[Rfam]
RNA sequence: UGACCGCCCUUUCCCUCCGGAAAGGCGCUAAGGCCAUACGGACAGCCGGGUCAAAUGCCGA
Numbered sequence: 001u002g003a004c005c006g007c008c009c010u011u012u013c014c015c016u017c018c019g020g021a022a023a024g025g026c027g028c029u030a031a032g033g034c035c036a037u038a039c040g041g042a043c044a045g046c047c048g049g050g051u052c053a054a055a056u057g058c059c060g061a
Stems, first nucleotide, its partner, number of pairs: 001053005006028002008025007
Streptococcus sRNA SpF59 (ldcC RNA): a 61-nucleotide sequence.